[Rfam]
Nucleotides: 137
Base pairs, nucleotide, nucleotide: 028057029056030055031054032053033052034044035043036042100121101120102119103118104117105116106115107114108113
Number, partner (000 for none) and nucleotide at each position: 001000a002000a003000g004000g005000u006000u007000u008000g009000a010000a011000a012000a013000a014000a015000c016000u017000g018000a019000c020000c021000u022000a023000a024000g025000a026000c027000a028057g029056u030055a031054g032053g033052g034044g035043a036042g037000c038000c039000a040000g041000a042036c043035u044034c045000a046000u047000a048000a049000a050000g051000a052033u053032c054031c055030u056029a057028c058000c059000g060000a061000g062000g063000c064000a065000c066000a067000a068000a069000a070000c071000g072000a073000u074000u075000a076000u077000u078000g079000a080000a081000u082000a083000u084000a085000a086000a087000c088000g089000u090000a091000u092000u093000u094000g095000u096000a097000c098000u099000u100121u101120c102119g103118u104117g105116u106115c107114u108113a109000g110000g111000u112000g113108u114107a115106g116105g117104u118103g119102c120101g121100a122000u123000u124000u125000u126000u127000u128000u129000u130000g131000u132000g133000c134000c135000u136000a137000u
Notes:
Shown here is a 137-nucleotide RNA sequence from Streptococcus minor, a member of the family "Ribosomal protein L10 leader". NCBI's taxonomy places the organism under Bacteria, Bacillota, Bacilli, Lactobacillales, Streptococcus. By type it is a cis-regulatory leader. For this family Rfam cites "Diverse mechanisms for regulating ribosomal protein synthesis in Escherichia coli" (Zengel and Lindahl, Prog Nucleic Acid Res Mol Biol, 1994). Pairs were carried over by alignment from the consensus structure, which was predicted with CMfinder.